[Rfam]
RNA sequence: AGAGGAGGCAUCCAAAGGGAUCGCAUUGAUCCCGAAUCUAAUUAUGUUGUUAAUUAAUUUCUCACAAUAUAUAUUUGGGAUCAUGCUAUCCUUUUGGAUUCAUCCUU
Dot-bracket structure: .(((((.(.((((((((((((.((((.(((((...(......................................)..))))))))).)))))))))))).).)))))
Shown here is a 107-nucleotide sequence from Trifolium subterraneum, a member of the family "mir-393 microRNA precursor family". The base pairs follow the family's consensus structure. It scores 92 bits against the family's covariance model. The family has 27 seed sequences and 1,052 matches in Rfam 15.1.